[Rfam]
RNA sequence: GUCAGUUUUGCAGGUUUGCAUCCCAGCUUACUAAAAUUGCUGUGCAAAUCCAUGCAAAACUGACUGUGGUG
Numbered sequence: 001g002u003c004a005g006u007u008u009u010g011c012a013g014g015u016u017u018g019c020a021u022c023c024c025a026g027c028u029u030a031c032u033a034a035a036a037u038u039g040c041u042g043u044g045c046a047a048a049u050c051c052a053u054g055c056a057a058a059a060c061u062g063a064c065u066g067u068g069g070u071g
Stems, first nucleotide, its partner, number of pairs: 001064012013051002015048007025041003

The record is a 71-nucleotide sequence, which matches "mir-19 microRNA precursor family" in Rfam. Rfam's curators put it in the seed alignment. Its Rfam clan is "mir-19 clan". Its family is annotated with RISC complex and miRNA-mediated post-transcriptional gene silencing in the Gene Ontology. For this family Rfam cites "Identification of novel genes coding for small expressed RNAs" (Lagos-Quintana et al., Science, 2001). The family's consensus secondary structure was predicted with RNAalifold.